Rfam assigns this 63-nucleotide sequence from Drosophila yakuba to the family "tRNA". Rfam's curators put it in the seed alignment. The family's consensus secondary structure is taken from published work. Taxonomically the source falls in Sophophora (Eukaryota, Bilateria, Panarthropoda, Muscomorpha).
RNA sequence: GGUCUUAUAGUCAAUAAUGAUAUCAAACUGCAAUUUUGAAGGAGUAAAUUUUUACUAAGACUU
Numbered sequence: 001g002g003u004c005u006u007a008u009a010g011u012c013a014a015u016a017a018u019g020a021u022a023u024c025a026a027a028c029u030g031c032a033a034u035u036u037u038g039a040a041g042g043a044g045u046a047a048a049u050u051u052u053u054a055c056u057a058a059g060a061c062u063u
Base pairs, nucleotide, nucleotide: 001062002061003060004059005058006057007056010021011020012019013018023039024038025037026036027035044055045054046053047052